RNA: SAM riboswitch aptamer (S box leader)
RNA sequence: AGGUUAUCAAGAAAGGUGGAGGGAAUAGACCCGUUGAAACCUUAGCAACCCUUGCUUUAACUAGUAUAAGCAAUGAAGGUGCUACAUUCUACUUCAUAUUUAGAUAGAUU
Numbered sequence: 001a002g003g004u005u006a007u008c009a010a011g012a013a014a015g016g017u018g019g020a021g022g023g024a025a026u027a028g029a030c031c032c033g034u035u036g037a038a039a040c041c042u043u044a045g046c047a048a049c050c051c052u053u054g055c056u057u058u059a060a061c062u063a064g065u066a067u068a069a070g071c072a073a074u075g076a077a078g079g080u081g082c083u084a085c086a087u088u089c090u091a092c093u094u095c096a097u098a099u100u101u102a103g104a105u106a107g108a109u110u
Stems, first nucleotide, its partner, number of pairs: 006109003013043005021032003026091004044083004049079002051075001053073001087106001092103002